The family of this 74-nucleotide RNA sequence from Caenorhabditis elegans is "mir-239 microRNA precursor family". Taxonomically the source falls in Caenorhabditis (Eukaryota, Opisthokonta, Eumetazoa, Chromadorea).
RNA sequence: CAAUUUUUGUACUACACAUAGGUACUGGACAAUUUUCAAAAUAUAUCCAGUGUCUAGUCUAGUGCAAACAUUGC
Numbered sequence: 001c002a003a004u005u006u007u008u009g010u011a012c013u014a015c016a017c018a019u020a021g022g023u024a025c026u027g028g029a030c031a032a033u034u035u036u037c038a039a040a041a042u043a044u045a046u047c048c049a050g051u052g053u054c055u056a057g058u059c060u061a062g063u064g065c066a067a068a069c070a071u072u073g074c
Stems, first nucleotide, its partner, number of pairs: 003071002006068007016058002019056005025050003029044001